Rfam assigns this 196-nucleotide RNA sequence from Paenibacillus albicereus to the family "c-di-AMP riboswitch aptamer (ydaO/yuaA leader)". Gene Ontology terms of the family: cyclic-di-AMP binding and regulation of gene expression. NCBI's taxonomy places the organism under Bacteria, Bacillati, Bacilli, Paenibacillaceae, Paenibacillus.
RNA sequence: CUUUUGACAACGCCGAGUUUCCGAAACGGGAAACGGGGGAACCAAACGGAGAGGCCAGAGCCGAUGUGAGAGUCGGCACGGGCCGCUCCAGGGGUGAAUCCCGGAGGAAUGGAGCCAUGGACUCCAUCCUCCGAGUAGGGCGACUCUCACCGUCCGAAUCCGACAGCUAACCUCGUAGGCGCAAGGACACGGCACG
Numbered sequence: 001c002u003u004u005u006g007a008c009a010a011c012g013c014c015g016a017g018u019u020u021c022c023g024a025a026a027c028g029g030g031a032a033a034c035g036g037g038g039g040a041a042c043c044a045a046a047c048g049g050a051g052a053g054g055c056c057a058g059a060g061c062c063g064a065u066g067u068g069a070g071a072g073u074c075g076g077c078a079c080g081g082g083c084c085g086c087u088c089c090a091g092g093g094g095u096g097a098a099u100c101c102c103g104g105a106g107g108a109a110u111g112g113a114g115c116c117a118u119g120g121a122c123u124c125c126a127u128c129c130u131c132c133g134a135g136u137a138g139g140g141c142g143a144c145u146c147u148c149a150c151c152g153u154c155c156g157a158a159u160c161c162g163a164c165a166g167c168u169a170a171c172c173u174c175g176u177a178g179g180c181g182c183a184a185g186g187a188c189a190c191g192g193c194a195c196g
Base pairs, nucleotide, nucleotide: 011181012180013179014178018032019031020030033176034175035174036173037172038171043091092161093160094159100135102133103132104131105130106129107128108127138155139154140153141152